[Rfam]
RNA: L19-Flavobacteria ribosomal protein leader
RNA sequence: CAACCUCUGGCGAAAACCGUGCACGUUG
Numbered sequence: 001c002a003a004c005c006u007c008u009g010g011c012g013a014a015a016a017c018c019g020u021g022c023a024c025g026u027u028g
Stems, first nucleotide, its partner, number of pairs: 001028004008023001010020003